Shown here is a 64-nucleotide RNA sequence, a member of the family "DUF3800-II RNA". By type it is a small RNA.
RNA sequence: GAAAUAAGAAACUCGGGACAAAUCCCAGUGGGAAAGUUCCUCGGAACUACCGAGACUUCUAACC
Numbered sequence: 001g002a003a004a005u006a007a008g009a010a011a012c013u014c015g016g017g018a019c020a021a022a023u024c025c026c027a028g029u030g031g032g033a034a035a036g037u038u039c040c041u042c043g044g045a046a047c048u049a050c051c052g053a054g055a056c057u058u059c060u061a062a063c064c
Base pairs, nucleotide, nucleotide: 007060008059009058010057012054013053014052015051016050023033024032025031026030035048036047037046038045039044